[Rfam]
This 102-nucleotide RNA from Monodelphis domestica belongs to the Rfam family "Y RNA". By type it is a non-coding RNA gene. Pairs were carried over by alignment from the consensus structure, which is taken from published work. Rfam's curators put it in the seed alignment. Lineage of the source: Eukaryota > Opisthokonta > Sarcopterygii > Dipnotetrapodomorpha > Monodelphis.
RNA sequence: GGCUGGUCCGAUUGCAGUGGUAACUCUAAUUAAUUGAUUACAGUCAGUUACAGAUUUCUUUGUUCUUUCUCCGCUCCCACUGCUUCACUUGACUAGUCUUUU
Number, nucleotide and partner (000 for none) at each position: 001g098002g097003c096004u095005g094006g093007u092008c091009c000010g090011a089012u000013u000014g086015c000016a081017g080018u079019g078020g077021u000022a000023a000024c000025u000026c000027u000028a064029a063030u062031u000032a060033a059034u000035u000036g000037a000038u000039u000040a000041c000042a000043g000044u000045c000046a000047g000048u000049u000050a000051c000052a000053g000054a000055u000056u000057u000058c000059u033060u032061u000062g030063u029064u028065c000066u000067u000068u000069c000070u000071c000072c000073g000074c000075u000076c000077c020078c019079a018080c017081u016082g000083c000084u000085u000086c014087a000088c000089u011090u010091g008092a007093c006094u005095a004096g003097u002098c001099u000100u000101u000102u000